[Rfam]
RNA sequence: CCUGACGCGUGCGACUGGCGAAGCAGUGGAGAAAACCACAGGGGAGCGCGCGGGCAGCCAUAGCCGUUCGCCUGGGCAAAAAGG
Number, nucleotide and partner (000 for none) at each position: 001c000002c000003u000004g000005a000006c052007g051008c050009g049010u048011g047012c046013g000014a000015c043016u042017g072018g071019c070020g069021a068022a000023g000024c000025a000026g039027u038028g037029g036030a000031g000032a000033a000034a000035a000036c029037c028038a027039c026040a000041g000042g016043g015044g000045a000046g012047c011048g010049c009050g008051c007052g006053g000054g000055c000056a000057g000058c000059c000060a000061u079062a000063g077064c076065c075066g000067u000068u021069c020070g019071c018072c017073u000074g000075g065076g064077c063078a000079a061080a000081a000082a000083g000084g000
This 84-nucleotide sequence from Paenibacillus sp. J31TS4 belongs to the Rfam family "ZMP/ZTP riboswitch aptamer (pfl RNA motif)". The match comes from Rfam's covariance-model search (61 bits). The base pairs follow the family's consensus structure, which is taken from published work. Lineage of the source: Bacteria > Bacillota > Bacilli > Caryophanales > Paenibacillus. On this family, see Jones and Ferre-D'Amare, Nat Struct Mol Biol 2015: "Recognition of the bacterial alarmone ZMP through long-distance association of two RNA subdomains".